[Rfam]
RNA sequence: CCUGGAAUUGCGCAGCACCGCGCCAAGGGAACCGGGGAACCACCACCUUGGGGUGAAUCGGACGCCUCUCGCCAGGGGGCGCCCGUAGGAGACCUUCCUGCUCCGAACCCGUCAGCUAACCCGGUAGGCGAGAAGGAAGGAAAGG
Number, nucleotide and partner (000 for none) at each position: 001c000002c000003u000004g000005g000006a000007a000008u000009u000010g000011c130012g129013c128014a000015g000016c000017a000018c000019c029020g000021c000022g000023c000024c000025a000026a000027g000028g000029g019030a000031a125032c124033c123034g122035g121036g120037g000038a000039a000040c000041c050042a049043c000044c000045a000046c000047c000048u000049u042050g041051g110052g109053g108054u000055g000056a000057a000058u000059c085060g084061g083062a000063c000064g000065c000066c000067u000068c000069u000070c000071g000072c000073c000074a000075g000076g000077g000078g000079g000080c000081g000082c000083c061084c060085g059086u000087a000088g104089g103090a102091g101092a000093c000094c000095u000096u000097c000098c000099u000100g000101c091102u090103c089104c088105g000106a000107a000108c053109c052110c051111g000112u000113c000114a000115g000116c000117u000118a000119a000120c036121c035122c034123g033124g032125u031126a000127g000128g013129c012130g011131a000132g000133a000134a000135g000136g000137a000138a000139g000140g000141a000142a000143a000144g000145g000
RNA: c-di-AMP riboswitch aptamer (ydaO/yuaA leader)